[Rfam]
Shown here is a 73-nucleotide RNA from Butyrivibrio proteoclasticus, a member of the family "tRNA". The source organism's lineage runs through Bacteria, Bacillati, Lachnospiraceae, Butyrivibrio and Butyrivibrio proteoclasticus.
RNA sequence: GCACCCGUAGUCUAACGGAUAGAACGUAGGCCUCCGACGCCUUUGAUGCAGGUUCGAAUUCCUGUCGGGUGCA
Numbered sequence: 001g002c003a004c005c006c007g008u009a010g011u012c013u014a015a016c017g018g019a020u021a022g023a024a025c026g027u028a029g030g031c032c033u034c035c036g037a038c039g040c041c042u043u044u045g046a047u048g049c050a051g052g053u054u055c056g057a058a059u060u061c062c063u064g065u066c067g068g069g070u071g072c073a
Stems, first nucleotide, its partner, number of pairs: 001072007010025002013022001028042004048065005

Its family is annotated with triplet codon-amino acid adaptor activity in the Gene Ontology.